[Rfam]
RNA sequence: UUUUAAUGGAGACCAGAAACCACAGAACGGGGCGAAUCCGAAAAGCCUUACGAGUAGGAAUUUA
Numbered sequence: 001u002u003u004u005a006a007u008g009g010a011g012a013c014c015a016g017a018a019a020c021c022a023c024a025g026a027a028c029g030g031g032g033c034g035a036a037u038c039c040g041a042a043a044a045g046c047c048u049u050a051c052g053a054g055u056a057g058g059a060a061u062u063u064a
Base pairs, nucleotide, nucleotide: 007022008021009020031047032046033045038058039057
The family of this 64-nucleotide sequence from Marinifilum sp. N1E240 is "DUF805 RNA". NCBI's taxonomy places the organism under Bacteria, Bacteroidota, Bacteroidia, Marinifilaceae, Marinifilum. The match comes from Rfam's covariance-model search (64 bits). By type it is a cis-regulatory element.